[Rfam]
RNA sequence: GGGGAAAGAAGACCCUGUUGAGCUUGACUCUAGUUUGACAUUGUGAAAAGACAUAGAGGGUGUAGAAUAAGUGGGAGCGUAAGCGCCAGUGAAAUACCACUACCUUUAUUGUCUUUUUACUUAUUCAAUGAAGCAGAGCUGGGAUUAACAUCCCACUUUUUAGUAUUAAGGUCCUUUUUGGGCUGAUCUGGGUUGAAGACAUUGUCAGGUGGGGAGUUUGGCUGGGGCGGCACAUCUGUUAAAUAAUAACGCAGGUGUCCUAAGGGGGACUCAUUGAGAACAGAAAUCUCAAGUAGAACAAAAGGGUAAAAGUCCCCUUGAUUUUGAUUUUCAGUGUGAAUACAAACCAUGAAAGUGUGGCCUAUCGAUCCUUUAGUCCUUUAGAAUUUAAAGCUAGAGGUGCCAGAAAAGUUACCACAGGGAUAACUGGCUUGUGGCAGCCAAGCGUUCAUAGCAACGUUGCUUUUUGAUCCUUCGAUGUCGGCUCUUCCUAUCAUACCGAAGCAGAAUUCGGUAAGCGUUGGAUUGUUCACCCACUAAUAGGGAACGUGAGCUGGGUUUAGACCGUCGUGAGACAUGUUAGUUUUACCCUA
Numbered sequence: 001g002g003g004g005a006a007a008g009a010a011g012a013c014c015c016u017g018u019u020g021a022g023c024u025u026g027a028c029u030c031u032a033g034u035u036u037g038a039c040a041u042u043g044u045g046a047a048a049a050g051a052c053a054u055a056g057a058g059g060g061u062g063u064a065g066a067a068u069a070a071g072u073g074g075g076a077g078c079g080u081a082a083g084c085g086c087c088a089g090u091g092a093a094a095u096a097c098c099a100c101u102a103c104c105u106u107u108a109u110u111g112u113c114u115u116u117u118u119a120c121u122u123a124u125u126c127a128a129u130g131a132a133g134c135a136g137a138g139c140u141g142g143g144a145u146u147a148a149c150a151u152c153c154c155a156c157u158u159u160u161u162a163g164u165a166u167u168a169a170g171g172u173c174c175u176u177u178u179u180g181g182g183c184u185g186a187u188c189u190g191g192g193u194u195g196a197a198g199a200c201a202u203u204g205u206c207a208g209g210u211g212g213g214g215a216g217u218u219u220g221g222c223u224g225g226g227g228c229g230g231c232a233c234a235u236c237u238g239u240u241a242a243a244u245a246a247u248a249a250c251g252c253a254g255g256u257g258u259c260c261u262a263a264g265g266g267g268g269a270c271u272c273a274u275u276g277a278g279a280a281c282a283g284a285a286a287u288c289u290c291a292a293g294u295a296g297a298a299c300a301a302a303a304g305g306g307u308a309a310a311a312g313u314c315c316c317c318u319u320g321a322u323u324u325u326g327a328u329u330u331u332c333a334g335u336g337u338g339a340a341u342a343c344a345a346a347c348c349a350u351g352a353a354a355g356u357g358u359g360g361c362c363u364a365u366c367g368a369u370c371c372u373u374u375a376g377u378c379c380u381u382u383a384g385a386a387u388u389u390a391a392a393g394c395u396a397g398a399g400g401u402g403c404c405a406g407a408a409a410a411g412u413u414a415c416c417a418c419a420g421g422g423a424u425a426a427c428u429g430g431c432u433u434g435u436g437g438c439a440g441c442c443a444a445g446c447g448u449u450c451a452u453a454g455c456a457a458c459g460u461u462g463c464u465u466u467u468u469g470a471u472c473c474u475u476c477g478a479u480g481u482c483g484g485c486u487c488u489u490c491c492u493a494u495c496a497u498a499c500c501g502a503a504g505c506a507g508a509a510u511u512c513g514g515u516a517a518g519c520g521u522u523g524g525a526u527u528g529u530u531c532a533c534c535c536a537c538u539a540a541u542a543g544g545g546a547a548c549g550u551g552a553g554c555u556g557g558g559u560u561u562a563g564a565c566c567g568u569c570g571u572g573a574g575a576c577a578u579g580u581u582a583g584u585u586u587u588a589c590c591c592u593a
Stems, first nucleotide, its partner, number of pairs: 002592003006587002014421004019417002021413005027217004034209007043120011054108006070101005077084002124197006220233001221231003234256006259360002265317006271297002274292006298307002322346003327341004348357001350355001371399005379393004430471001432469001434468001436464006445455002482557001483555004487549001488546005495520001499514005522536003526532001563581003567576003

Shown here is a 593-nucleotide part of an RNA from Puccinia coronata, a member of the family "Archaeal large subunit ribosomal RNA". Gene Ontology terms of the family: ribosome and structural constituent of ribosome.